The record is a 93-nucleotide RNA sequence from Camellia sinensis, which matches "U5 spliceosomal RNA" in Rfam. Gene Ontology terms of the family: spliceosomal tri-snRNP complex assembly and U5 snRNP. The source organism's lineage runs through Eukaryota, Streptophyta, eudicotyledons, Theaceae and Camellia sinensis. The family's RNA type in Rfam is spliceosomal small nuclear RNA. U5 RNA is a component of both types of known spliceosome. The precise function of this molecule is unknown, though it is known that the 5' loop is required for splice site selection and p220 binding, and that both the 3' stem-loop and the Sm site are important for Sm protein binding and cap methylation.
[Rfam]
RNA sequence: UUGCUGGAGUGCAAAGUGAACUAUUCUUUUGUCUUUUACUAAAGAAUAUUGUGCGGCAAAUGCCAAUUUUUGGAGAGCCCUUUCCAAAGGCCU
Numbered sequence: 001u002u003g004c005u006g007g008a009g010u011g012c013a014a015a016g017u018g019a020a021c022u023a024u025u026c027u028u029u030u031g032u033c034u035u036u037u038a039c040u041a042a043a044g045a046a047u048a049u050u051g052u053g054c055g056g057c058a059a060a061u062g063c064c065a066a067u068u069u070u071u072g073g074a075g076a077g078c079c080c081u082u083u084c085c086a087a088a089g090g091c092c093u
Stems, first nucleotide, its partner, number of pairs: 001059004010055004022048008074093001077092001079090004